The family of this 82-nucleotide sequence from Rhynchophorus ferrugineus is "mir-46/mir-47/mir-281 microRNA precursor family".
For this family Rfam cites "An abundant class of tiny RNAs with probable regulatory roles in Caenorhabditis elegans" (Lau et al., Science, 2001).
The match comes from Rfam's covariance-model search (83 bits).
The source organism's lineage runs through Eukaryota, Protostomia, Polyphaga, Curculionidae and Rhynchophorus.

[Rfam]
RNA sequence: AAAAUUUGAAAAUAAAGAGAGCUAUCCGUCGACAGUCUAUAUUUUACACUGUCAUGGAGUCGCUCUCUUUAUGAACAAAUUU
Number, nucleotide and partner (000 for none) at each position: 001a000002a000003a000004a000005u000006u000007u000008g000009a000010a000011a000012a000013u000014a070015a069016a068017g067018a066019g000020a064021g063022c062023u000024a000025u058026c057027c056028g055029u000030c000031g053032a052033c051034a000035g049036u048037c000038u000039a000040u000041a000042u000043u000044u000045u000046a000047c000048a036049c035050u000051g033052u032053c031054a000055u028056g027057g026058a025059g000060u000061c000062g022063c021064u020065c000066u018067c017068u016069u015070u014071a000072u000073g000074a000075a000076c000077a000078a000079a000080u000081u000082u000